Rfam assigns this 117-nucleotide sequence from Ectothiorhodospiraceae bacterium WFHF3C12 to the family "ALIL pseudoknot". The source organism's lineage runs through Bacteria, Pseudomonadati, Pseudomonadota, Chromatiales and Ectothiorhodospiraceae. Rfam 15.1 lists 2,146 matches to the family in 1,098 species. On this family, see Mazauric et al., J Biol Chem 2008: "Apical loop-internal loop RNA pseudoknots: a new type of stimulator of -1 translational frameshifting in bacteria". The family's consensus secondary structure is taken from published work. The family's RNA type in Rfam is cis-regulatory element. It scores 106 bits against the family's covariance model.
Nucleotides: 117
Stems, first nucleotide, its partner, number of pairs: 016032005078117005089112002092109002095106003
Number, partner (000 for none) and nucleotide at each position: 001000g002000g003000c004000u005000u006000u007000u008000u009000u010000c011000g012000c013000c014000c015000a016032g017031g018030c019029g020028g021000a022000g023000c024000u025000c026000g027000a028020c029019c030018g031017c032016c033000a034000c035000g036000g037000g038000a039000a040000g041000u042000g043000a044000u045000g046000a047000u048000g049000g050000c051000g052000u053000u054000u055000a056000u057000c058000g059000a060000c061000c062000g063000c064000c065000a066000u067000c068000g069000c070000g071000a072000g073000g074000u075000c076000u077000a078117c079116g080115g081114g082113g083000u084000c085000g086000a087000g088000c089112c090111g091000a092109u093108c094000u095106g096105c097104g098000c099000g100000c101000a102000g103000c104097u105096g106095c107000c108093g109092a110000u111090c112089g113082c114081c115080c116079c117078g